[Rfam]
RNA: Bacterial large signal recognition particle RNA
Organism: Urinicoccus massiliensis
Nucleotides: 267
Stems, first nucleotide, its partner, number of pairs: 001267006009058003012030004017025003035055005064260007073251001075249003079244001082241007092231002096228005104221002106218003115212008123201002125198004129191002132189004138181005148173004156165003
Number, partner (000 for none) and nucleotide at each position: 001267c002266c003265a004264u005263a006262c007000u008000a009058g010057a011056c012030g013029g014028g015027g016000a017025g018024c019023u020000a021000g022000c023019g024018g025017c026000a027015c028014c029013c030012u031000c032000a033000u034000g035055c036054u037053u038052g039051c040000a041000a042000u043000c044000c045000g046000c047000u048000a049000u050000a051039g052038c053037a054036a055035g056011g057010u058009u059000g060000a061000a062000u063000u064260c065259c066258c067257g068256g069255u070254u071000g072000c073251g074000g075249c076248u077247u078000a079244u080000c081000c082241u083240u084239g085238u086237a087236u088235g089000g090000u091000c092231u093230g094000c095000c096228u097227c098226g099225g100224a101000a102000a103000a104221g105220u106218g107217g108216c109000g110000u111000u112000g113000a114000u115212g116211a117210u118209u119208g120207g121206g122205u123201c124200c125198u126197a127196c128195g129191c130190a131000a132189c133188a134187a135186a136000u137000g138181c139180u140179u141178u142177u143000g144000a145000a146000c147000c148173g149172u150171g151170u152000c153000a154000g155000g156165u157164c158163u159000u160000g161000a162000c163158g164157g165156a166000a167000g168000c169000a170151g171150c172149a173148c174000u175000a176000a177142g178141g179140a180139a181138g182000a183000u184000g185000u186135u187134u188133u189132g190130u191129g192000u193000g194000c195128c196127g197126u198125a199000u200124g201123g202000g203000u204000c205122g206121c207120c208119u209118a210117g211116u212115c213000u214000g215000a216108g217107u218106u219000a220105a221104c222000u223000c224100u225099c226098c227097g228096g229000g230093u231092a232000c233000c234000g235088c236087a237086u238085a239084u240083a241082a242000u243000c244079g245000a246000u247077a248076a249075g250000a251073c252000a253000a254070g255069g256068c257067c258066g259065g260064g261000u262006g263005u264004a265003u266002g267001g